[Rfam]
RNA: mir-574 microRNA precursor family
Organism: Pipistrellus kuhlii
RNA sequence: AGGCCUGGAGAGAGGGGCAGGGUCUGAUCCACAGCCUCCUUGGUAGCUGUUGAUUAGCUGUUCUCUCUCUUUUUCUCCG
Numbered sequence: 001a002g003g004c005c006u007g008g009a010g011a012g013a014g015g016g017g018c019a020g021g022g023u024c025u026g027a028u029c030c031a032c033a034g035c036c037u038c039c040u041u042g043g044u045a046g047c048u049g050u051u052g053a054u055u056a057g058c059u060g061u062u063c064u065c066u067c068u069c070u071u072u073u074u075c076u077c078c079g
Stems, first nucleotide, its partner, number of pairs: 008071009019062002022059001024057006032049004